[Rfam]
RNA sequence: AUACUUAAUGGCGGGGGAGAUACCAUGAUCUUGAAGGGGAUUUUCUCAGGGUGAGGCUCUCCCAUUAUACUCCGGGUGUGCUGACCCCUGUGAUUUCCCCAAAUGUGGCAAACUCGACUACAUAGUCUGUGGUAGUGGGGAGCUGCAUUCUCAUUCUCCCCU
Numbered sequence: 001a002u003a004c005u006u007a008a009u010g011g012c013g014g015g016g017g018a019g020a021u022a023c024c025a026u027g028a029u030c031u032u033g034a035a036g037g038g039g040a041u042u043u044u045c046u047c048a049g050g051g052u053g054a055g056g057c058u059c060u061c062c063c064a065u066u067a068u069a070c071u072c073c074g075g076g077u078g079u080g081c082u083g084a085c086c087c088c089u090g091u092g093a094u095u096u097c098c099c100c101a102a103a104u105g106u107g108g109c110a111a112a113c114u115c116g117a118c119u120a121c122a123u124a125g126u127c128u129g130u131g132g133u134a135g136u137g138g139g140g141a142g143c144u145g146c147a148u149u150c151u152c153a154u155u156c157u158c159c160c161c162u
Base pairs, nucleotide, nucleotide: 011121013119014118015047016046017045018044019043020042022041024039026037048089049088050087051086053085055082056081057080059078061076062075063074091116092115093114094112095111096110098108099107137161138160139159140158141157142156147151
U1 spliceosomal RNA: a 162-nucleotide sequence from Myotis myotis. The match comes from Rfam's covariance-model search (102 bits). Pairs were carried over by alignment from the consensus structure, which is taken from published work.